[Rfam]
RNA: A. fumigatus sRNA Afu_309
Organism: Diplodia seriata
RNA sequence: ACCAAAACACAAACCUGUGUCCAGCGCUCCCUUACGCCUAACGGUAUGUCAGAUCGCAGUUUUCCCGCUCGGAGUCGCAACUAACAGGCUUGCAGGUGUCUAAGGUCGAGUGCUGCGACAGUUCGGCCGGCUAUGCACAGGGGAGACAAUACACCUAGUGUACGUGCCUCUGUGCGGCCGACAGGUAUUUCAGAACCACAGCGGGUCGUCUGAACGGUUCCUUGGGGCUUUGCUUCAGGUUGAGCCGGGAGGGCGGCUUUGCGGCGCGUUACAUUCCUAGUUUCCACAGAAUUACUCCAUUGGAGGCUGAAGAUAGGAGACACAACCGUAACAGCGUACAUAC
Numbered sequence: 001a002c003c004a005a006a007a008c009a010c011a012a013a014c015c016u017g018u019g020u021c022c023a024g025c026g027c028u029c030c031c032u033u034a035c036g037c038c039u040a041a042c043g044g045u046a047u048g049u050c051a052g053a054u055c056g057c058a059g060u061u062u063u064c065c066c067g068c069u070c071g072g073a074g075u076c077g078c079a080a081c082u083a084a085c086a087g088g089c090u091u092g093c094a095g096g097u098g099u100c101u102a103a104g105g106u107c108g109a110g111u112g113c114u115g116c117g118a119c120a121g122u123u124c125g126g127c128c129g130g131c132u133a134u135g136c137a138c139a140g141g142g143g144a145g146a147c148a149a150u151a152c153a154c155c156u157a158g159u160g161u162a163c164g165u166g167c168c169u170c171u172g173u174g175c176g177g178c179c180g181a182c183a184g185g186u187a188u189u190u191c192a193g194a195a196c197c198a199c200a201g202c203g204g205g206u207c208g209u210c211u212g213a214a215c216g217g218u219u220c221c222u223u224g225g226g227g228c229u230u231u232g233c234u235u236c237a238g239g240u241u242g243a244g245c246c247g248g249g250a251g252g253g254c255g256g257c258u259u260u261g262c263g264g265c266g267c268g269u270u271a272c273a274u275u276c277c278u279a280g281u282u283u284c285c286a287c288a289g290a291a292u293u294a295c296u297c298c299a300u301u302g303g304a305g306g307c308u309g310a311a312g313a314u315a316g317g318a319g320a321c322a323c324a325a326c327c328g329u330a331a332c333a334g335c336g337u338a339c340a341u342a343c
Base pairs, nucleotide, nucleotide: 011190012189013186014185015184016183017182018181019119020118021117022115023114024113026111027110028109029108030105031104032103033102034101036097037096038095039094043090044089045088047086048085049084127180129178131176135168201262202261203260208257218250219249220248221247226246227245228244229243230242233238265336266335267334268332269331270330271329272328281320282319283318284317285316288314295305296304297303298302